[Rfam]
Shown here is a 111-nucleotide sequence from Falsibacillus pallidus, a member of the family "epsC RNA". It is annotated as a cis-regulatory element. NCBI's taxonomy places the organism under Bacteria, Bacillati, Bacillota, Caryophanales, Falsibacillus. Pairs were carried over by alignment from the consensus structure, which is taken from published work.
RNA sequence: UGGUGAUGCCAUCCCUACCGUUAUCAAUGGAGGCACUCGAUCAUGCUGUGGGUUGAAAGACCUUAGACGCUUGUCGUCAGGAGUGUGGUGUGAGGGGGGGUUGAAUGCCCC
Numbered sequence: 001u002g003g004u005g006a007u008g009c010c011a012u013c014c015c016u017a018c019c020g021u022u023a024u025c026a027a028u029g030g031a032g033g034c035a036c037u038c039g040a041u042c043a044u045g046c047u048g049u050g051g052g053u054u055g056a057a058a059g060a061c062c063u064u065a066g067a068c069g070c071u072u073g074u075c076g077u078c079a080g081g082a083g084u085g086u087g088g089u090g091u092g093a094g095g096g097g098g099g100g101u102u103g104a105a106u107g108c109c110c111c
Stems, first nucleotide, its partner, number of pairs: 001020004007035004012031003036094004040089008050063005066078004097111005
Dot-bracket structure: [[[[..((((.(((..]]]]........)))))))((((((((((((..(((((....)))))..((((.....))))...)))))))).))))..(((((.....)))))